[Rfam]
RNA sequence: CUAGCAAAACAGAUUAUCGCUACGCCUUAGGGUGGAGAGGAAAGUCCGGGCAACUUAAGCAGCAUACUUCCUAACGGGAAGGGUUUCCAUUAUAAUGAUAGAAAUACAGAAAGUGCCACAGAAAAUUAAACUACUCUGCUGCAAAGUAGAGAAAAGGUGAAAAGGCGGGGUAAGAGCCCACCGCCUAUUUAGCAAUAAAUAGGGCAGGGUAAACCUUAUGUGUUGCAAAGCCAAAUAGGCAAGAAAUAAAAGGGUGUUCGCUUAGCACCAACAACCUCAGGUUGUUUUUCUUGCGGGUAGGCUGCUACAUCUUAUUAGUGAUAAUAAGAGCAGAUAAAUGAUAGUCGCAAAUUUGGUCAAAAGCCAUUUUUGAACAGAACCCGGCUUAUAGUUUUGCUAAAGAU
Numbered sequence: 001c002u003a004g005c006a007a008a009a010c011a012g013a014u015u016a017u018c019g020c021u022a023c024g025c026c027u028u029a030g031g032g033u034g035g036a037g038a039g040g041a042a043a044g045u046c047c048g049g050g051c052a053a054c055u056u057a058a059g060c061a062g063c064a065u066a067c068u069u070c071c072u073a074a075c076g077g078g079a080a081g082g083g084u085u086u087c088c089a090u091u092a093u094a095a096u097g098a099u100a101g102a103a104a105u106a107c108a109g110a111a112a113g114u115g116c117c118a119c120a121g122a123a124a125a126u127u128a129a130a131c132u133a134c135u136c137u138g139c140u141g142c143a144a145a146g147u148a149g150a151g152a153a154a155a156g157g158u159g160a161a162a163a164g165g166c167g168g169g170g171u172a173a174g175a176g177c178c179c180a181c182c183g184c185c186u187a188u189u190u191a192g193c194a195a196u197a198a199a200u201a202g203g204g205c206a207g208g209g210u211a212a213a214c215c216u217u218a219u220g221u222g223u224u225g226c227a228a229a230g231c232c233a234a235a236u237a238g239g240c241a242a243g244a245a246a247u248a249a250a251a252g253g254g255u256g257u258u259c260g261c262u263u264a265g266c267a268c269c270a271a272c273a274a275c276c277u278c279a280g281g282u283u284g285u286u287u288u289u290c291u292u293g294c295g296g297g298u299a300g301g302c303u304g305c306u307a308c309a310u311c312u313u314a315u316u317a318g319u320g321a322u323a324a325u326a327a328g329a330g331c332a333g334a335u336a337a338a339u340g341a342u343a344g345u346c347g348c349a350a351a352u353u354u355g356g357u358c359a360a361a362a363g364c365c366a367u368u369u370u371u372g373a374a375c376a377g378a379a380c381c382c383g384g385c386u387u388a389u390a391g392u393u394u395u396g397c398u399a400a401a402g403a404u
Stems, first nucleotide, its partner, number of pairs: 002399009011389001012346007020037002023034004042387003046384005051225004059278001062221005067081005082107001083105004108216002113214002115210003131156002134151007164182002167179003183205001184203008229303004239294006271285005310329008
Shown here is a 404-nucleotide RNA from Bacteroidetes bacterium B1(2017), a member of the family "Bacterial RNase P class A". It is annotated as a ribozyme.